[Rfam]
RNA sequence: CAAUGAAAGAAGCAUGGUAAUGUGCACAGAAAUUGAAUUAGGUCUCUAGGCCUGCCCUCUCUAAUGUCAUUUAGCUUUGAUUUAGAGGCAUGGUUCCGCGGCAAAAUA
Numbered sequence: 001c002a003a004u005g006a007a008a009g010a011a012g013c014a015u016g017g018u019a020a021u022g023u024g025c026a027c028a029g030a031a032a033u034u035g036a037a038u039u040a041g042g043u044c045u046c047u048a049g050g051c052c053u054g055c056c057c058u059c060u061c062u063a064a065u066g067u068c069a070u071u072u073a074g075c076u077u078u079g080a081u082u083u084a085g086a087g088g089c090a091u092g093g094u095u096c097c098g099c100g101g102c103a104a105a106a107u108a
Stems, first nucleotide, its partner, number of pairs: 012025004040091001042089003050081001052079001054075002

The record is a 108-nucleotide RNA sequence from Rhododendron williamsianum, which matches "Small nucleolar RNA snoR100" in Rfam. Its family is annotated with RNA processing and nucleolus in the Gene Ontology. By type it is an H/ACA-box small nucleolar RNA.